RNA sequence: ACGUCGCCCGUGCGGCGCGCUCGGCCUGAACGGGCCGGCCAGGGCAGGGGUGGUGCCGUGUCGGCGCAGCACCACCCCUGUCGG
Numbered sequence: 001a002c003g004u005c006g007c008c009c010g011u012g013c014g015g016c017g018c019g020c021u022c023g024g025c026c027u028g029a030a031c032g033g034g035c036c037g038g039c040c041a042g043g044g045c046a047g048g049g050g051u052g053g054u055g056c057c058g059u060g061u062c063g064g065c066g067c068a069g070c071a072c073c074a075c076c077c078c079u080g081u082c083g084g
Base pairs, nucleotide, nucleotide: 002017003016004015005014006013007012019040021038022037023036024035025034026033027032044081045080046079047078048077049076050075051074052073053072054071055070056069058067059066060065
Source information
Rfam assigns this 84-nucleotide RNA from Streptomyces spinoverrucosus to the family "Streptomyces RNA 6106". Identified by deep sequencing of transcriptome at the end of exponential growth phase. Appears smaller on northern blot than sequencing transcript. This indicates processing step. Pairs were carried over by alignment from the consensus structure. On this family, see Vockenhuber et al., RNA Biol 2011: "Deep sequencing-based identification of small non-coding RNAs in Streptomyces coelicolor". The family's RNA type in Rfam is small RNA. Taxonomically the source falls in Streptomyces (Bacteria, Actinomycetota, Kitasatosporales, Streptomycetaceae).